[Rfam]
RNA sequence: AUUGAGAGACAGGGGCGUUCAUCGGAAGAUGGACUGAGAAGCACCCUUCGAACCUGAACCAGAUAAUGCUGGCGGAGGGAGUCGCUCGGGAAGCUUC
Numbered sequence: 001a002u003u004g005a006g007a008g009a010c011a012g013g014g015g016c017g018u019u020c021a022u023c024g025g026a027a028g029a030u031g032g033a034c035u036g037a038g039a040a041g042c043a044c045c046c047u048u049c050g051a052a053c054c055u056g057a058a059c060c061a062g063a064u065a066a067u068g069c070u071g072g073c074g075g076a077g078g079g080a081g082u083c084g085c086u087c088g089g090g091a092a093g094c095u096u097c
Stems, first nucleotide, its partner, number of pairs: 006085001008083003011047004016041001017034005053078003059072004
Record summary: The record is a 97-nucleotide RNA sequence from Rhizobium sp. PDO1-076, which matches "TPP riboswitch aptamer (THI element)" in Rfam. The organism belongs to Rhizobium, within Bacteria. A search with the family's covariance model found it, with a score of 65 bits. The family's consensus secondary structure is taken from published work.